Rfam assigns this 114-nucleotide sequence from Cobetia sp. UCD-24C to the family "TPP riboswitch aptamer (THI element)". The base pairs follow the family's consensus structure, which is taken from published work. NCBI's taxonomy places the organism under Bacteria, Pseudomonadota, Gammaproteobacteria, Oceanospirillales, Cobetia.
RNA sequence: CGGCCUGGAUGGGGGUGCCCGAGGAUGGGCUGAGAGCCGCAGCGAUACGUCGCGCGACAACCCCUGGAACCUGAUCCGGUUGAUACCGGCGGAGGGAAUCCCCGACGCGUGCCC
Numbered sequence: 001c002g003g004c005c006u007g008g009a010u011g012g013g014g015g016u017g018c019c020c021g022a023g024g025a026u027g028g029g030c031u032g033a034g035a036g037c038c039g040c041a042g043c044g045a046u047a048c049g050u051c052g053c054g055c056g057a058c059a060a061c062c063c064c065u066g067g068a069a070c071c072u073g074a075u076c077c078g079g080u081u082g083a084u085a086c087c088g089g090c091g092g093a094g095g096g097a098a099u100c101c102c103c104g105a106c107g108c109g110u111g112c113c114c
Base pairs, nucleotide, nucleotide: 007101008100009099010098011064012063013062014061017030018029019028020027021026038056039055040054070095071094072093076089077088078087079086